[Rfam]
RNA sequence: CACCCGGCCAGGAUCCCGUGGGGGGAAUCCAUGACCGGGACAUGGAAACGCCCCGCCGGUGGGC
Numbered sequence: 001c002a003c004c005c006g007g008c009c010a011g012g013a014u015c016c017c018g019u020g021g022g023g024g025g026a027a028u029c030c031a032u033g034a035c036c037g038g039g040a041c042a043u044g045g046a047a048a049c050g051c052c053c054c055g056c057c058g059g060u061g062g063g064c
Base pairs, nucleotide, nucleotide: 001062003039004038005037006036007035010032011030012029013028014027015025016024017023044053045052
Rfam assigns this 64-nucleotide RNA from Streptomyces sp. RKND-216 to the family "Streptomyces RNA 2736".
For this family Rfam cites "Deep sequencing-based identification of small non-coding RNAs in Streptomyces coelicolor" (Vockenhuber et al., RNA Biol, 2011).
Pairs were carried over by alignment from the consensus structure.
Rfam's curators write: Identified by deep sequencing of transcriptome at the end of exponential growth phase. Appears smaller on northern blot than sequencing transcript.
The source organism's lineage runs through Bacteria, Bacillati, Actinomycetes, Streptomycetaceae and Streptomyces.